About this RNA
The record is a 66-nucleotide sequence, which matches "S15-Flavobacteria ribosomal protein leader" in Rfam. Clan: Ribosomal Protein S15 Leader clan.
[Rfam]
Nucleotides: 066
Stems, first nucleotide, its partner, number of pairs: 014032006
Number, partner (000 for none) and nucleotide at each position: 001000u002000a003000u004000a005000u006000u007000u008000g009000c010000a011000c012000u013000u014032u015031c016030a017029a018028u019027a020000g021000a022000a023000a024000a025000u026000c027019u028018g029017u030016u031015g032014a033000a034000a035000u036000a037000c038000a039000u040000a041000a042000a043000a044000a045000u046000c047000a048000u049000u050000u051000a052000a053000a054000u055000a056000a057000u058000a059000u060000u061000g062000g063000c064000a065000u066000g